FMN riboswitch aptamer (RFN element): a 155-nucleotide sequence from Paenibacillus aquistagni. The match comes from Rfam's covariance-model search (105 bits).
RNA sequence: ACAAACCUUCAGGGCAGGGUGCAAUUCCCGACCGGCGGUAUUAAGCAAACACUUGUUUGUUUUCAGCCCGUGACCCGUUGUGAAGCUGAGCUUUGCACGGUGGACUUGGUGAGAAUCCGAGGCCGACAGUAUAGUCUGGAUGGGAGAAGGGAGUC
Dot-bracket structure: .....(((((......(((.......))).[[((((((...........................[[))))...((((..................))))....(((((.......)))))]])).(((....]]))).......))))).....